[Rfam]
RNA sequence: ACGCGGGGACGACCUCGCGCAUUCUGCUAUUUCGGGGACGACCCU
Numbered sequence: 001a002c003g004c005g006g007g008g009a010c011g012a013c014c015u016c017g018c019g020c021a022u023u024c025u026g027c028u029a030u031u032u033c034g035g036g037g038a039c040g041a042c043c044c045u
Stems, first nucleotide, its partner, number of pairs: 002019007034045004